[Rfam]
Nucleotides: 329
Base pairs, nucleotide, nucleotide: 005026006025007024008023009022010021011020012019030040031039032038087272088271089270090269092267093266097188098187099186100185101184102183107179108178109177189223190222195215199211200210201209227309229308230307231306232305233304274295275294276293277292279290282287314327316325317324318323
Number, partner (000 for none) and nucleotide at each position: 001000a002000a003000a004000c005026u006025g007024u008023c009022a010021u011020g012019a013000a014000a015000a016000a017000a018000c019012u020011u021010a022009u023008g024007g025006u026005a027000a028000a029000g030040a031039a032038a033000g034000u035000a036000a037000c038032u039031u040030u041000a042000u043000a044000g045000a046000u047000g048000c049000a050000c051000u052000a053000g054000u055000c056000c057000g058000c059000g060000u061000c062000g063000u064000u065000c066000a067000g068000a069000c070000a071000a072000u073000g074000a075000a076000c077000g078000a079000c080000u081000a082000g083000a084000a085000a086000a087272u088271c089270g090269g091000g092267u093266g094000a095000a096000u097188u098187g099186c100185a101184g102183g103000g104000a105000a106000c107179u108178c109177c110000u111000u112000a113000g114000a115000g116000g117000c118000a119000g120000g121000c122000a123000a124000g125000c126000c127000a128000c129000a130000a131000c132000g133000u134000g135000a136000c137000u138000g139000g140000a141000a142000a143000c144000g145000g146000u147000g148000a149000g150000c151000g152000u153000g154000a155000g156000g157000g158000c159000u160000u161000a162000a163000a164000a165000a166000u167000u168000g169000c170000u171000u172000g173000c174000a175000u176000u177109g178108g179107a180000c181000a182000a183102u184101c185100u186099g187098c188097a189223g190222c191000c192000a193000a194000g195215c196000g197000u198000c199211a200210u201209u202000g203000g204000g205000c206000a207000a208000a209201g210200g211199u212000a213000a214000u215195g216000g217000c218000g219000a220000a221000g222190g223189u224000u225000c226000a227309a228000c229308g230307a231306c232305u233304a234000g235000a236000g237000a238000g239000u240000g241000a242000g243000u244000c245000c246000c247000a248000a249000c250000a251000a252000u253000a254000a255000a256000c257000u258000c259000u260000c261000a262000c263000a264000a265000g266093c267092g268000c269090c270089c271088g272087a273000c274295c275294c276293c277292u278000a279290a280000c281000a282287g283000a284000u285000c286000a287282u288000g289000c290279u291000g292277a293276g294275g295274g296000u297000g298000a299000u300000g301000a302000u303000a304233u305232a306231g307230u308229c309227u310000a311000g312000u313000c314327c315000g316325g317324c318323u319000g320000c321000a322000g323318a324317g325316c326000a327314g328000c329000g
Description:
The family of this 329-nucleotide RNA from Mesobacillus selenatarsenatis is "Group I catalytic intron". The match comes from Rfam's covariance-model search (77 bits). From the family's description: Group I catalytic introns are large self-splicing ribozymes. They catalyse their own excision from mRNA, tRNA and rRNA precursors in a wide range of organisms. The core secondary structure consists of 9 paired regions (P1-P9). These fold to essentially two domains - the P4-P6 domain (formed from the stacking of P5, P4, P6 and P6a helices) and the P3-P9 domain (formed from the P8, P3, P7 and P9 helices).